[Rfam]
RNA sequence: AUAAAACUAGCUACUUAUUAUUUUCUAAUUGGUUCUUAGUAUAAUUUUUAUAAGAACCAAUUAGAAAAUGACAAGUGGCUAGUUUUGA
Number, nucleotide and partner (000 for none) at each position: 001a000002u087003a086004a085005a084006a083007c082008u081009a080010g079011c078012u077013a076014c075015u074016u073017a000018u071019u070020a069021u068022u067023u066024u065025c064026u063027a062028a061029u060030u059031g058032g057033u056034u055035c054036u053037u052038a051039g000040u000041a000042u000043a000044a000045u000046u000047u000048u000049u000050a000051u038052a037053a036054g035055a034056a033057c032058c031059a030060a029061u028062u027063a026064g025065a024066a023067a022068a021069u020070g019071a018072c000073a016074a015075g014076u013077g012078g011079c010080u009081a008082g007083u006084u005085u004086u003087g002088a000